[Rfam]
RNA sequence: AAAAGGGGCUUCUGCUGUGUUUAGCAAGCGGGUUGAUUCGAAUUUCGGAUCUUUCUGCGAGGAAUCGACAUCAAAAGAUUCCGGAAGCAUAAUUUUUGCAGCUGGGGCUGUCGGAGAUCUCGUGUCCGGGUGCCCCC
Numbered sequence: 001a002a003a004a005g006g007g008g009c010u011u012c013u014g015c016u017g018u019g020u021u022u023a024g025c026a027a028g029c030g031g032g033u034u035g036a037u038u039c040g041a042a043u044u045u046c047g048g049a050u051c052u053u054u055c056u057g058c059g060a061g062g063a064a065u066c067g068a069c070a071u072c073a074a075a076a077g078a079u080u081c082c083g084g085a086a087g088c089a090u091a092a093u094u095u096u097u098g099c100a101g102c103u104g105g106g107g108c109u110g111u112c113g114g115a116g117a118u119c120u121c122g123u124g125u126c127c128g129g130g131u132g133c134c135c136c137c
Stems, first nucleotide, its partner, number of pairs: 008088005013026005028058005035051006061082006105135004110131003114127001116126003